Shown here is a 49-nucleotide RNA sequence, a member of the family "DUF3800-XI RNA". Pairs were carried over by alignment from the consensus structure, which is taken from published work. Rfam classes the family as a small RNA. Rfam's curators put it in the seed alignment.
RNA sequence: UGGCCUGGUCGGAAGACCCGGGUCCACAUCAAUGACGGGCGAGACGCCC
Numbered sequence: 001u002g003g004c005c006u007g008g009u010c011g012g013a014a015g016a017c018c019c020g021g022g023u024c025c026a027c028a029u030c031a032a033u034g035a036c037g038g039g040c041g042a043g044a045c046g047c048c049c
Stems, first nucleotide, its partner, number of pairs: 001026003005022002007018004
Dot-bracket structure: (((.((((((....))))..)).))).......................